[Rfam]
RNA sequence: AACGUAAAUUAAAUAUUUCGUCGUAUAAUGUCGAGAAUAAGGCUCGAAAGUUUCUACCAAACUACCAGUAAAUAGUUUGACUACGACUAUUCAUUCUAGAUGC
Number, nucleotide and partner (000 for none) at each position: 001a000002a000003c000004g000005u000006a000007a000008a000009u000010u000011a000012a000013a000014u000015a000016u000017u000018u089019c000020g087021u086022c085023g084024u083025a082026u000027a000028a000029u049030g000031u047032c046033g045034a044035g043036a000037a000038u000039a000040a000041g000042g000043c035044u034045c033046g032047a031048a000049a029050g000051u000052u000053u000054c000055u000056a000057c000058c079059a078060a077061a076062c075063u074064a073065c000066c000067a000068g000069u000070a000071a000072a000073u064074a063075g062076u061077u060078u059079g058080a000081c000082u025083a024084c023085g022086a021087c020088u000089a018090u000091u000092c000093a000094u000095u000096c000097u000098a000099g000100a000101u000102g000103c000
A member of the RNA family "Purine riboswitch aptamer" from Ureibacillus manganicus, 103 nucleotides long. The base pairs follow the family's consensus structure, which is taken from published work. Rfam's curators write: Riboswitches are metabolite binding domains within certain messenger RNAs that serve as precision sensors for their corresponding targets. The source organism's lineage runs through Bacteria, Bacilli, Caryophanales, Caryophanaceae and Ureibacillus manganicus. Gene Ontology term of the family: purine nucleobase biosynthetic process.